[Rfam]
Description
Rfam assigns this 134-nucleotide RNA sequence from Ochotona princeps to the family "Small nucleolar RNA SNORA13". Rfam's curators put it in the seed alignment.

RNA sequence: CGCCUUCGUGUUGCCCGUUCGCCUUUACCCGCUGGCGGCCGUGGUGUCAAGCAAGGCGGACAUGGAGCGCUUGGCAGCCUUUUCCGGCCCGGAGGUUGGAUAUCUCCGACGCAGGACCUGCUCAAGCGACAGGC
Numbered sequence: 001c002g003c004c005u006u007c008g009u010g011u012u013g014c015c016c017g018u019u020c021g022c023c024u025u026u027a028c029c030c031g032c033u034g035g036c037g038g039c040c041g042u043g044g045u046g047u048c049a050a051g052c053a054a055g056g057c058g059g060a061c062a063u064g065g066a067g068c069g070c071u072u073g074g075c076a077g078c079c080u081u082u083u084c085c086g087g088c089c090c091g092g093a094g095g096u097u098g099g100a101u102a103u104c105u106c107c108g109a110c111g112c113a114g115g116a117c118c119u120g121c122u123c124a125a126g127c128g129a130c131a132g133g134c
Base pairs, nucleotide, nucleotide: 002057003056004055005054006053009049010048012046013045014044015043016041017040019038020037021036022035023034069127070126071125072124073122074121075120076119077118083116084115085114087112088111090108094103
About this RNA:
Clan: SNORA13 clan. Lineage of the source: Eukaryota > Eumetazoa > Chordata > Amniota > Ochotona. Rfam describes the family as follows. ACA13 is a member of the H/ACA class of snoRNA that guide the sites of modification of uridines to pseudouridines.